[Rfam]
RNA sequence: CAGAGAUGAACUUCGAUUAAGUUCGCAACGUCCUGUUGCAACAUCGAAGCCAACACAUCCUGUGUA
Numbered sequence: 001c002a003g004a005g006a007u008g009a010a011c012u013u014c015g016a017u018u019a020a021g022u023u024c025g026c027a028a029c030g031u032c033c034u035g036u037u038g039c040a041a042c043a044u045c046g047a048a049g050c051c052a053a054c055a056c057a058u059c060c061u062g063u064g065u066a
Stems, first nucleotide, its partner, number of pairs: 011049007025039005053065004